[Rfam]
Rfam assigns this 125-nucleotide RNA from Hymenochirus boettgeri to the family "Small nucleolar RNA SNORD22".
The family's RNA type in Rfam is C/D-box small nucleolar RNA.
The literature on the family includes a 1996 paper in Nature by Tycowski et al., "A mammalian gene with introns instead of exons generating stable RNA products".
Pairs were carried over by alignment from the consensus structure, which was predicted with PFOLD.
RNA sequence: UCCUCGAUGAUAAAACUCACACGUCCGACCUGCUGUCUGGUGCCAGAGCUUGAAAAGGUCAAACCCACUGGUACCAACAGCAGGAGGGAAGAAACAAUGGUUCCAGCUGGAAUGGUCUGAGGGAC
Numbered sequence: 001u002c003c004u005c006g007a008u009g010a011u012a013a014a015a016c017u018c019a020c021a022c023g024u025c026c027g028a029c030c031u032g033c034u035g036u037c038u039g040g041u042g043c044c045a046g047a048g049c050u051u052g053a054a055a056a057g058g059u060c061a062a063a064c065c066c067a068c069u070g071g072u073a074c075c076a077a078c079a080g081c082a083g084g085a086g087g088g089a090a091g092a093a094a095c096a097a098u099g100g101u102u103c104c105a106g107c108u109g110g111a112a113u114g115g116u117c118u119g120a121g122g123g124a125c
Base pairs, nucleotide, nucleotide: 001124002123003122004121